[Rfam]
RNA sequence: GCCCCUGAGGAUGAUCCAUAUAAAACUUUCGUUCUUCCGAGAUGUUUCAUGCGGAAAAGCUUUUGGAGGCCUGAACUGAAGGGGC
Numbered sequence: 001g002c003c004c005c006u007g008a009g010g011a012u013g014a015u016c017c018a019u020a021u022a023a024a025a026c027u028u029u030c031g032u033u034c035u036u037c038c039g040a041g042a043u044g045u046u047u048c049a050u051g052c053g054g055a056a057a058a059g060c061u062u063u064u065g066g067a068g069g070c071c072u073g074a075a076c077u078g079a080a081g082g083g084g085c
Stems, first nucleotide, its partner, number of pairs: 003083004
RNA: Small nucleolar RNA Z159/U59
Organism: Punica granatum